[Rfam]
RNA sequence: CUCGGGGAGGAGAGGGGGUCCCUCAGCCUGGAUUGCGAGAGGGCUCAGGCCAGGCUGAGGGACCUCACCAGUGCACG
Dot-bracket structure: ...(.(..((....((((((((((((((.((.(((.(......).))).)).)))))))))))))).))..).)...
This 77-nucleotide RNA from Pipistrellus kuhlii belongs to the Rfam family "mir-9193 microRNA precursor family". The base pairs follow the family's consensus structure, which was predicted with RNAalifold. NCBI's taxonomy places the organism under Eukaryota, Metazoa, Sarcopterygii, Vespertilionidae, Pipistrellus.